[Rfam]
RNA: Rhodo-rpoB RNA
Organism: Litoreibacter roseus
RNA sequence: GGUUCGGGAGCGUGCCCGUGGGACGGUGCGCAGGUAUGGAACCUGACCCCCUUGAUCCAAGUGGAGCGUUUCCCUUCCCCGGGGUGGCGCU
Number, nucleotide and partner (000 for none) at each position: 001g043002g042003u041004u040005c039006g000007g000008g000009a000010g031011c030012g029013u028014g027015c026016c025017c000018g000019u000020g000021g000022g000023a000024c000025g016026g015027u014028g013029c012030g011031c010032a000033g000034g000035u000036a000037u000038g000039g005040a004041a003042c002043c001044u000045g000046a000047c000048c000049c000050c000051c000052u000053u000054g000055a000056u000057c000058c000059a000060a000061g000062u000063g000064g000065a091066g090067c089068g088069u087070u086071u000072c084073c083074c082075u000076u000077c000078c000079c000080c000081g000082g074083g073084g072085u000086g070087g069088c068089g067090c066091u065